[Rfam]
RNA: SAM-I/IV (S-adenosyl methionine) riboswitch aptamer
RNA sequence: UGUCUGCAUCAAGAGAAGGGCUGACGCCCUCGCCAACCUGCCCGACCCGGCAAGGUGGCUUCCCGAAAGGGAGAUGCGGCCAAGGACGGCAACCAAGGGGUCCAAA
Numbered sequence: 001u002g003u004c005u006g007c008a009u010c011a012a013g014a015g016a017a018g019g020g021c022u023g024a025c026g027c028c029c030u031c032g033c034c035a036a037c038c039u040g041c042c043c044g045a046c047c048c049g050g051c052a053a054g055g056u057g058g059c060u061u062c063c064c065g066a067a068a069g070g071g072a073g074a075u076g077c078g079g080c081c082a083a084g085g086a087c088g089g090c091a092a093c094c095a096a097g098g099g100g101u102c103c104a105a106a
Stems, first nucleotide, its partner, number of pairs: 006077005015031001017030005032059003037055003040051003044102005079090003